BsrC: an 88-nucleotide RNA from Paenibacillus sp. OAS669. On this family, see Saito et al., Gene 2008: "Novel small RNA-encoding genes in the intergenic regions of Bacillus subtilis". The source organism's lineage runs through Bacteria, Bacillati, Caryophanales, Paenibacillaceae and Paenibacillus. A search with the family's covariance model found it, with a score of 88 bits. The 301 nucleotide sequence from Kouji Nakamura has been trimmed to a highly conserved ~85 nucleotide long core to form this family. The family's RNA type in Rfam is small RNA.
RNA sequence: GUGCCCUAAAACAAUGAAAGCCCUACCUCUCUUUCAUCCUUGCGGCUCCGAAGACCGCGCCAGUGUGAAUCAGUAACACAACAACAAA
Numbered sequence: 001g002u003g004c005c006c007u008a009a010a011a012c013a014a015u016g017a018a019a020g021c022c023c024u025a026c027c028u029c030u031c032u033u034u035c036a037u038c039c040u041u042g043c044g045g046c047u048c049c050g051a052a053g054a055c056c057g058c059g060c061c062a063g064u065g066u067g068a069a070u071c072a073g074u075a076a077c078a079c080a081a082c083a084a085c086a087a088a
Base pairs, nucleotide, nucleotide: 034068035067036066039063040062041059042058043057044056045055047053